[Rfam]
RNA: Bacteroidales-1 6S-Bacteroidales RNA suggested
RNA sequence: AGCCGCACUUUUUCGAUUGGGAAACUCAUCAAGUUUAUUUCAAUUCCGAGACAUCGCUCUCGUUGCUAAUGGCGGGCCGCGCCCUUCGGGGUAUGCUUAGCACAGCGGAUUACAAAGGUGACGAAGCACUCAAAUCCUGUCAUACGGAGUUUGUUCAUAUCUAAUGGUGCGGCUUUCUUU
Numbered sequence: 001a002g003c004c005g006c007a008c009u010u011u012u013u014c015g016a017u018u019g020g021g022a023a024a025c026u027c028a029u030c031a032a033g034u035u036u037a038u039u040u041c042a043a044u045u046c047c048g049a050g051a052c053a054u055c056g057c058u059c060u061c062g063u064u065g066c067u068a069a070u071g072g073c074g075g076g077c078c079g080c081g082c083c084c085u086u087c088g089g090g091g092u093a094u095g096c097u098u099a100g101c102a103c104a105g106c107g108g109a110u111u112a113c114a115a116a117g118g119u120g121a122c123g124a125a126g127c128a129c130u131c132a133a134a135u136c137c138u139g140u141c142a143u144a145c146g147g148a149g150u151u152u153g154u155u156c157a158u159a160u161c162u163a164a165u166g167g168u169g170c171g172g173c174u175u176u177c178u179u180u
Stems, first nucleotide, its partner, number of pairs: 056127003060124008070114002077108004082091003094102003